The record is a 77-nucleotide RNA sequence from Leptobrachium leishanense, which matches "mir-30 microRNA precursor family" in Rfam.
Rfam links the family to the GO terms gene silencing by miRNA and RISC complex.
Pairs were carried over by alignment from the consensus structure, which was predicted with PFOLD.
NCBI's taxonomy places the organism under Eukaryota, Deuterostomia, Batrachia, Pelobatoidea, Leptobrachium.
Rfam describes the family as follows. This family consists of the mammalian microRNA (miRNA) precursor mir-30a. Animal miRNAs are transcribed as ~70nt precursors and subsequently processed by the Dicer enzyme to give a ~22nt product. In this case the mature sequence comes from both the 3' (miR-30) and 5' (mir-97-6) arms of the precursor. The extents of the hairpin precursors are not generally known and are estimated based on hairpin prediction.
The literature on the family includes a 2001 paper in Science by Lagos-Quintana et al., "Identification of novel genes coding for small expressed RNAs".
RNA sequence: UCUGGUGCUGUAAACAUCCCCGACUGGAAGCUUUGAGGCUAAUUUUGAGCUUUCAGUCCGAUGUUUGCUGCUGCCGG
Numbered sequence: 001u002c003u004g005g006u007g008c009u010g011u012a013a014a015c016a017u018c019c020c021c022g023a024c025u026g027g028a029a030g031c032u033u034u035g036a037g038g039c040u041a042a043u044u045u046u047g048a049g050c051u052u053u054c055a056g057u058c059c060g061a062u063g064u065u066u067g068c069u070g071c072u073g074c075c076g077g
Base pairs, nucleotide, nucleotide: 002076004074008070010068011067012066013065014064015063016062017061018060023057024056025055026054027053028052029051030050031049032048